[Rfam]
RNA sequence: ACGUGAAUACUUAAACGACACACACGGACUGAAACUGAUGUGCCGGGGUGCCUGUUUCGACAGGUCGGGGCUCAGGGUUCGUGGAGGCAUAAC
Numbered sequence: 001a002c003g004u005g006a007a008u009a010c011u012u013a014a015a016c017g018a019c020a021c022a023c024a025c026g027g028a029c030u031g032a033a034a035c036u037g038a039u040g041u042g043c044c045g046g047g048g049u050g051c052c053u054g055u056u057u058c059g060a061c062a063g064g065u066c067g068g069g070g071c072u073c074a075g076g077g078u079u080c081g082u083g084g085a086g087g088c089a090u091a092a093c
Base pairs, nucleotide, nucleotide: 023083024082025081026080027079028078029077030076036074037073038072040071041070043068044067045066050065051064052063053062054061
Shown here is a 93-nucleotide RNA from Thalassolituus maritimus, a member of the family "t44 RNA". It scores 57 bits against the family's covariance model. Lineage of the source: Bacteria > Pseudomonadati > Pseudomonadota > Oceanospirillales > Thalassolituus.